Description:
Rfam assigns this 307-nucleotide RNA from Acer yangbiense to the family "Plant signal recognition particle RNA". Taxonomically the source falls in Acer (Eukaryota, Mesangiospermae, rosids, Sapindales). The match comes from Rfam's covariance-model search (254 bits). The family's consensus secondary structure is taken from published work. Gene Ontology terms of the family: signal recognition particle, endoplasmic reticulum targeting and SRP-dependent cotranslational protein targeting to membrane, signal sequence recognition.
RNA sequence: ACCGAGCUUGGUCACGCGAGCUUGUGACCCAAGUGGGGGCAAUGAGAUGGUGGAACAUUGGUUCGAUCCAUCGAGCCGGGUCCAUGGUUGGCUCAUGACUGGCUUGUCCGUUUCAAGCCAAGAGUUGGUUCAUGUGUCUCCUGCGAAGGCUGGAGCCACAUGGAUCCUAGAGAGGAGGGCACAGCGUGAGGCUGGCUUCACAGAGCAGCGACUACCUCCCUCUCUUGGCAGUGAAAGGAUCACAGGCUGGUGCCAUUUGGAUCCAACAUGGUUCUAUGGGUUGGGCUCUAACUGGACCAUCACCUUU
Numbered sequence: 001a002c003c004g005a006g007c008u009u010g011g012u013c014a015c016g017c018g019a020g021c022u023u024g025u026g027a028c029c030c031a032a033g034u035g036g037g038g039g040c041a042a043u044g045a046g047a048u049g050g051u052g053g054a055a056c057a058u059u060g061g062u063u064c065g066a067u068c069c070a071u072c073g074a075g076c077c078g079g080g081u082c083c084a085u086g087g088u089u090g091g092c093u094c095a096u097g098a099c100u101g102g103c104u105u106g107u108c109c110g111u112u113u114c115a116a117g118c119c120a121a122g123a124g125u126u127g128g129u130u131c132a133u134g135u136g137u138c139u140c141c142u143g144c145g146a147a148g149g150c151u152g153g154a155g156c157c158a159c160a161u162g163g164a165u166c167c168u169a170g171a172g173a174g175g176a177g178g179g180c181a182c183a184g185c186g187u188g189a190g191g192c193u194g195g196c197u198u199c200a201c202a203g204a205g206c207a208g209c210g211a212c213u214a215c216c217u218c219c220c221u222c223u224c225u226u227g228g229c230a231g232u233g234a235a236a237g238g239a240u241c242a243c244a245g246g247c248u249g250g251u252g253c254c255a256u257u258u259g260g261a262u263c264c265a266a267c268a269u270g271g272u273u274c275u276a277u278g279g280g281u282u283g284g285g286c287u288c289u290a291a292c293u294g295g296a297c298c299a300u301c302a303c304c305u306u307u
Stems, first nucleotide, its partner, number of pairs: 002039002004023007028037003044306003048302006056294002058291003061286006068279004073274005078264007087256001089255003093252001099250009108238002111236005117229008127166010138155004143150002167172001174219005185210003192203003